Small nucleolar RNA R66: a 71-nucleotide RNA sequence from Amborella trichopoda. A search with the family's covariance model found it, with a score of 61 bits. About the family: snoR66 is a C/D box small nucleolar RNA, which acts as a methylation guide for 18S ribosomal RNA in plants. snoR66 has been alternatively named snoZ269 in rice. The family's consensus secondary structure was predicted with PFOLD. The family's RNA type in Rfam is C/D-box small nucleolar RNA. Lineage of the source: Eukaryota > Streptophyta > Euphyllophyta > Amborellaceae > Amborella.
RNA sequence: UCCCAUGAUGGCAUGUAAUCUUUGAGACCUGAUUGUCUGAUGAUGUAACUACAAGCAUCUCUGCUGAGGAC
Numbered sequence: 001u002c003c004c005a006u007g008a009u010g011g012c013a014u015g016u017a018a019u020c021u022u023u024g025a026g027a028c029c030u031g032a033u034u035g036u037c038u039g040a041u042g043a044u045g046u047a048a049c050u051a052c053a054a055g056c057a058u059c060u061c062u063g064c065u066g067a068g069g070a071c
Base pairs, nucleotide, nucleotide: 001070002069003068032041033040034039